[Rfam]
The family of this 282-nucleotide RNA sequence from Perkinsus marinus is "Metazoan signal recognition particle RNA". Rfam links the family to the GO terms signal recognition particle, endoplasmic reticulum targeting and SRP-dependent cotranslational protein targeting to membrane, signal sequence recognition. A reference for the family is Wild et al. (2002), "Towards the structure of the mammalian signal recognition particle", Curr Opin Struct Biol. The signal recognition particle (SRP) is a universally conserved ribonucleoprotein. Lineage of the source: Eukaryota > Sar > Alveolata > Perkinsus > Perkinsus marinus.
RNA sequence: GCUGGGUGAGUUGCGAUCGCCUGUAACCCAUGCGGGGGUGAGAUUUGUGUGAAUUGGGUGUCGUGUCGCGGCCUGACCGGUGAUCAGCUGUCCAUCCCAAGGUGCCACUAAGGUCGGGUGGGAAGGCGGAAGUCAUCACAUCCGAUCAUCUGAAGGCGCGGGUACUGGCCAAGGCUGGGAACAGAGCAGGCAAUACCGCACGAUGGGACCAGUGAGGGUGGAGAGCGGCUGAGAGGUCGGUAGCCAACACAGCAACAACGAGAUGCAAAACACACAGAUCGC
Numbered sequence: 001g002c003u004g005g006g007u008g009a010g011u012u013g014c015g016a017u018c019g020c021c022u023g024u025a026a027c028c029c030a031u032g033c034g035g036g037g038g039u040g041a042g043a044u045u046u047g048u049g050u051g052a053a054u055u056g057g058g059u060g061u062c063g064u065g066u067c068g069c070g071g072c073c074u075g076a077c078c079g080g081u082g083a084u085c086a087g088c089u090g091u092c093c094a095u096c097c098c099a100a101g102g103u104g105c106c107a108c109u110a111a112g113g114u115c116g117g118g119u120g121g122g123a124a125g126g127c128g129g130a131a132g133u134c135a136u137c138a139c140a141u142c143c144g145a146u147c148a149u150c151u152g153a154a155g156g157c158g159c160g161g162g163u164a165c166u167g168g169c170c171a172a173g174g175c176u177g178g179g180a181a182c183a184g185a186g187c188a189g190g191c192a193a194u195a196c197c198g199c200a201c202g203a204u205g206g207g208a209c210c211a212g213u214g215a216g217g218g219u220g221g222a223g224a225g226c227g228g229c230u231g232a233g234a235g236g237u238c239g240g241u242a243g244c245c246a247a248c249a250c251a252g253c254a255a256c257a258a259c260g261a262g263a264u265g266c267a268a269a270a271c272a273c274a275c276a277g278a279u280c281g282c
Stems, first nucleotide, its partner, number of pairs: 001039003004022006011015001027036003042280010054269002057266001060259002063256001064249003068244002071241002074239005084232008092221002095217002098214002101210003105206003109202001110149001112147009122137002125134003150156002158199004166193001168191003175184003